Notes:
Rfam assigns this 98-nucleotide sequence from Streptomyces sp. ISL-96 to the family "Glycine riboswitch aptamer". Lineage of the source: Bacteria > Actinomycetota > Kitasatosporales > Streptomycetaceae > Streptomyces. Gene Ontology term of the family: glycine biosynthetic process.
[Rfam]
RNA sequence: UGAAUCCGCGCGGGAGAGUCCGAAGCACUGUGUGCCCAGGACGCCGAAGGAGCAAGUUCCUCCCUUGAAUCUCUCAGGCCCCGUACCGCGCGGGCGAG
Number, nucleotide and partner (000 for none) at each position: 001u000002g000003a000004a000005u000006c093007c092008g091009c090010g089011c088012g087013g086014g000015a000016g000017a000018g000019u041020c040021c039022g000023a000024a000025g000026c000027a000028c000029u000030g000031u000032g000033u000034g000035c000036c000037c000038a000039g021040g020041a019042c000043g079044c078045c077046g075047a074048a000049g000050g073051a072052g071053c000054a000055a000056g066057u000058u000059c000060c000061u000062c000063c000064c000065u000066u056067g000068a000069a000070u000071c052072u051073c050074u047075c046076a000077g045078g044079c043080c000081c000082c000083g000084u000085a000086c013087c012088g011089c010090g009091c008092g007093g006094g000095c000096g000097a000098g000